Shown here is a 79-nucleotide sequence from Legionella lansingensis, a member of the family "Legionella RNA 69". A reference for the family is Weissenmayer et al. (2011), "Sequencing illustrates the transcriptional response of Legionella pneumophila during infection and identifies seventy novel small non-coding RNAs", PLoS One. By type it is a small RNA.

RNA sequence: AGACAGCGCUUCGCGCUUCCUCAGUCCGAACGAUUCAAGCGUAGACUGGAUCAAACGCAUUUUUCAGUCUAAAUUUUGU
Numbered sequence: 001a002g003a004c005a006g007c008g009c010u011u012c013g014c015g016c017u018u019c020c021u022c023a024g025u026c027c028g029a030a031c032g033a034u035u036c037a038a039g040c041g042u043a044g045a046c047u048g049g050a051u052c053a054a055a056c057g058c059a060u061u062u063u064u065c066a067g068u069c070u071a072a073a074u075u076u077u078g079u
Stems, first nucleotide, its partner, number of pairs: 002019002005017005023051001025049002028046001030042003034038001
Overview:
A search with the family's covariance model found it, with a score of 46 bits. About the family: Identified by strand specific sequencing of the transcriptional response during broth growth and during infection inside the host. Infection specific expression. The source organism's lineage runs through Bacteria, Gammaproteobacteria, Legionellales, Legionellaceae and Legionella.